[Rfam]
RNA sequence: AGCUGCAUUGCUGGGCAACUUCUCCUUUGGCAGAUGUGUUGGGGCUUACCAGACUACUGCCAAAGGAAAUUUGCCCCGGAAUUCAUCU
Numbered sequence: 001a002g003c004u005g006c007a008u009u010g011c012u013g014g015g016c017a018a019c020u021u022c023u024c025c026u027u028u029g030g031c032a033g034a035u036g037u038g039u040u041g042g043g044g045c046u047u048a049c050c051a052g053a054c055u056a057c058u059g060c061c062a063a064a065g066g067a068a069a070u071u072u073g074c075c076c077c078g079g080a081a082u083u084c085a086u087c088u
Base pairs, nucleotide, nucleotide: 005084007082008081009080011078013076014075015074016073017072018071023067024066025065028062029061030060031059032058033057036054
Rfam assigns this 88-nucleotide RNA from Eragrostis curvula to the family "mir-399 microRNA precursor family". Rfam links the family to the GO terms miRNA-mediated post-transcriptional gene silencing and RISC complex. mir-399 was identified in both Arabidopsis thaliana and Oryza sativa computationally and was later experimentally verified. mir-399 is thought to target mRNAs coding for a phosphatase transporter. The mature sequence is excised from the 3' arm of the hairpin.